[Rfam]
Nucleotides: 177
Base pairs, nucleotide, nucleotide: 007171008170009169010168011167017084018083019082020081021080024077025076034068035067036066037065038064039063088118089117090116091114092113093112094111095110096109097108098107119145120144123141124140125139126138127137128136129135147162148161149160150159151158152157
Number, partner (000 for none) and nucleotide at each position: 001000u002000u003000a004000a005000c006000a007171g008170a009169u010168a011167g012000a013000g014000g015000u016000u017084g018083c019082g020081u021080g022000g023000a024077u025076u026000a027000a028000g029000a030000g031000u032000a033000a034068u035067c036066u037065g038064c039063c040000g041000u042000a043000u044000g045000u046000u047000c048000c049000g050000a051000u052000u053000c054000a055000c056000a057000g058000a059000u060000g061000a062000g063039g064038g065037c066036a067035g068034a069000g070000g071000a072000a073000a074000g075000g076025a077024a078000g079000a080021c081020a082019c083018g084017c085000c086000g087000a088118a089117a090116g091114a092113a093112u094111a095110u096109a097108u098107g099000g100000g101000a102000a103000c104000g105000g106000c107098u108097g109096u110095a111094u112093a113092u114091u115000g116090c117089u118088u119145g120144g121000g122000g123141g124140c125139a126138a127137u128136g129135u130000g131000a132000a133000g134000a135129a136128c137127a138126u139125u140124g141123u142000a143000a144120c145119u146000g147162u148161c149160a150159u151158c152157g153000a154000a155000a156000a157152c158151g159150a160149u161148g162147g163000u164000g165000c166000g167011c168010u169009a170008u171007c172000a173000c174000u175000g176000a177000a